A member of the RNA family "Pseudomonas sRNA P36" from Nicotiana attenuata, 66 nucleotides long. The literature on the family includes a 2006 paper in Nucleic Acids Res by Livny et al., "Identification of 17 Pseudomonas aeruginosa sRNAs and prediction of sRNA-encoding genes in 10 diverse pathogens using the bioinformatic tool sRNAPredict2". The base pairs follow the family's consensus structure, which was predicted with RNAalifold. Rfam classes the family as a small RNA.
RNA sequence: AAACCGGUUAAACCGGUUAAACCGGUUAACCGGUUAAACCGGUUAAACCGGUUAACCGGUUAACCG
Numbered sequence: 001a002a003a004c005c006g007g008u009u010a011a012a013c014c015g016g017u018u019a020a021a022c023c024g025g026u027u028a029a030c031c032g033g034u035u036a037a038a039c040c041g042g043u044u045a046a047a048c049c050g051g052u053u054a055a056c057c058g059g060u061u062a063a064c065c066g
Stems, first nucleotide, its partner, number of pairs: 005032007013025004040066007048059003